[Rfam]
RNA sequence: ACCAUCCUUUUCUUGGGGUUGAGCUACUGUCCAAUGAGCAUAUAGUGAGGACAGAACUGCUAAUACUACACAACACACCCACAUCAACUAGAGCUUUGCUUUAUCAUGGUGCAAUUUUUGGAAAA
Dot-bracket structure: .....((((.....))))..(.(...((((((.....((.....))..))))))...).).....................(((((..((((((...))))))...)))))..............
U4atac minor spliceosomal RNA: a 125-nucleotide RNA from Carlito syrichta. U4atac is an essential component of the minor U12-type spliceosome complex which is required for removal of the rarer class of eukaryotic introns (AT-AC, U12-type). Its Rfam clan is "U4 clan". A reference for the family is Davila Lopez et al. (2008), "Computational screen for spliceosomal RNA genes aids in defining the phylogenetic distribution of major and minor spliceosomal components", Nucleic Acids Res.